RNA: TPP riboswitch aptamer (THI element)
Organism: Sphingobium indicum
RNA sequence: GGGACAUCCCCGGGGGACCGUCCACAGACGGUUGAGAGGCGGCUGACGUGGCCGCGACCCGCUGAACCUGAUCCGGAUAAGACCGGCGUAGGGAGGGAAGGGCCAUCCGCA
Numbered sequence: 001g002g003g004a005c006a007u008c009c010c011c012g013g014g015g016g017a018c019c020g021u022c023c024a025c026a027g028a029c030g031g032u033u034g035a036g037a038g039g040c041g042g043c044u045g046a047c048g049u050g051g052c053c054g055c056g057a058c059c060c061g062c063u064g065a066a067c068c069u070g071a072u073c074c075g076g077a078u079a080a081g082a083c084c085g086g087c088g089u090a091g092g093g094a095g096g097g098a099a100g101g102g103c104c105a106u107c108c109g110c111a
Stems, first nucleotide, its partner, number of pairs: 007098004011061004017032005039055007067092004073086004